The family of this 182-nucleotide RNA sequence is "malK-I RNA".
RNA sequence: UACCGAACGGCUUCCGCUCUCCACCUUACGAGCGGUAUGCGGUUCGAUGAAAGGAGUUUGUUUUCCCCGCAGGAUCCGCGGUGCGGCAGUGUGGAGACCUGCCGUAUGUCCUCCGUACAUUCAUCGGCGGAGGUAAGGUCUGAGCAGCGGAGGCUCUCAGAUCAGGAUCGGUACGCAUGGCA
Numbered sequence: 001u002a003c004c005g006a007a008c009g010g011c012u013u014c015c016g017c018u019c020u021c022c023a024c025c026u027u028a029c030g031a032g033c034g035g036u037a038u039g040c041g042g043u044u045c046g047a048u049g050a051a052a053g054g055a056g057u058u059u060g061u062u063u064u065c066c067c068c069g070c071a072g073g074a075u076c077c078g079c080g081g082u083g084c085g086g087c088a089g090u091g092u093g094g095a096g097a098c099c100u101g102c103c104g105u106a107u108g109u110c111c112u113c114c115g116u117a118c119a120u121u122c123a124u125c126g127g128c129g130g131a132g133g134u135a136a137g138g139u140c141u142g143a144g145c146a147g148c149g150g151a152g153g154c155u156c157u158c159a160g161a162u163c164a165g166g167a168u169c170g171g172u173a174c175g176c177a178u179g180g181c182a
Base pairs, nucleotide, nucleotide: 006043008041009040012037014035015034016033017032018031067081068080069079070078073169074168075167076166077165082106083105084104085103086102087101088100089099091098092097110133111132112131113130114129115128116127137163138162139161140160141159142158143157144156146155147154148153
Record summary: Rfam's curators put it in the seed alignment.